[Rfam]
A member of the RNA family "Small nucleolar RNA SNORD116" from Malurus elegans, 90 nucleotides long. The match comes from Rfam's covariance-model search (38 bits). It is annotated as a C/D-box small nucleolar RNA.
RNA sequence: CAAUUGUAAAUGGAUACAUAGAAAGCAUUUUUGGGAAGCUGAGACAUAAAUGAGUACAAAAUACUGUCAUUUUUAUUUUUAAUGAGGUUG
Number, nucleotide and partner (000 for none) at each position: 001c090002a089003a088004u087005u086006g000007u000008a000009a000010a000011u000012g000013g000014a000015u000016a000017c000018a000019u000020a000021g000022a000023a000024a000025g000026c052027a051028u050029u049030u048031u000032u044033g000034g000035g000036a000037a000038g000039c000040u000041g000042a000043g000044a032045c000046a000047u000048a030049a029050a028051u027052g026053a000054g000055u000056a000057c000058a000059a000060a000061a000062u000063a000064c000065u000066g000067u000068c000069a000070u000071u000072u000073u000074u000075a000076u000077u000078u000079u000080u000081a000082a000083u000084g000085a000086g005087g004088u003089u002090g001